A member of the RNA family "RAGATH-18 RNA", 69 nucleotides long.
The base pairs follow the family's consensus structure, which is taken from published work.
Actinobacteria, Firmicutes, Fusobacteria, Thermotogae (1 example).
The sequence is in the family's curated seed alignment.

RNA sequence: ACUGUGGAGUGUUACAUAAACUAUAGUAGAUGCUUUUAUGGAUCGAGAUAGGACACUACGAAGCAGUAA
Dot-bracket structure: (((((...(((((.......(((.....(((.((.....)))))....))))))))......)))))..